This 107-nucleotide RNA from Companilactobacillus tucceti belongs to the Rfam family "THF (Tetrahydrofolate) riboswitch aptamer". Tetrahydrofolate (THF) riboswitch was first reported for Ames et al. as an RNA motif in 5' untranslated (5'-UTR)regions of folate transport and biosynthesis genes in Firmicutes genomes. NCBI's taxonomy places the organism under Bacteria, Bacillati, Bacillota, Lactobacillales, Companilactobacillus tucceti.
[Rfam]
RNA sequence: UUUGGAGUAGGAUUCAAAGCGUGAAGUGCCAAUGGAACGGGAUGUGAACAUUGGACGAAGAGUUAGACAAUAUCUCAACUCGCGGUUUUGUUUCCGCAUUCGCCACU
Numbered sequence: 001u002u003u004g005g006a007g008u009a010g011g012a013u014u015c016a017a018a019g020c021g022u023g024a025a026g027u028g029c030c031a032a033u034g035g036a037a038c039g040g041g042a043u044g045u046g047a048a049c050a051u052u053g054g055a056c057g058a059a060g061a062g063u064u065a066g067a068c069a070a071u072a073u074c075u076c077a078a079c080u081c082g083c084g085g086u087u088u089u090g091u092u093u094c095c096g097c098a099u100u101c102g103c104c105a106c107u
Base pairs, nucleotide, nucleotide: 003105004104005103010095011094012093015090016089017088018087019086020084021083022082026056027055029054030053031052032051033050034049040101041100042099043098044097060081061080062079063078